The family of this 94-nucleotide RNA sequence from Simmondsia chinensis is "Plastid-rps12 3UTR RNA". Plastid rpl20 is a non-coding RNA (ncRNA) recognised in plastids. It was found in the three prime untranslated region (3UTR) of rps12 gene, its 3UTR location sugest a role in transcript maduration. The base pairs follow the family's consensus structure, which was predicted with LocARNA. Rfam classes the family as a cis-regulatory element. On this family, see Richter et al., Plant Commun 2023: "Retrograde signaling in plants: A critical review focusing on the GUN pathway and beyond". The sequence is in the family's curated seed alignment.
RNA sequence: GGUUUCCGUUGGUGUAAAUCCAAUCCGAUCAUUUAAGAUGAAAAAAUAUUUACCAUUGGUAGCAAACGAUAUCCAUUAAGCGGGGAAAUCCUAU
Number, nucleotide and partner (000 for none) at each position: 001g000002g000003u000004u000005u000006c000007c000008g000009u023010u022011g021012g020013u000014g000015u000016a000017a000018a000019u000020c012021c011022a010023a009024u000025c000026c000027g000028a000029u000030c000031a000032u000033u000034u000035a000036a000037g000038a000039u000040g000041a000042a000043a000044a000045a000046a000047u000048a000049u000050u000051u085052a000053c083054c082055a076056u075057u000058g073059g072060u071061a070062g000063c000064a000065a000066a000067c000068g000069a000070u061071a060072u059073c058074c000075a056076u055077u000078a000079a000080g000081c000082g054083g053084g000085g051086a000087a000088a000089u000090c000091c000092u000093a000094u000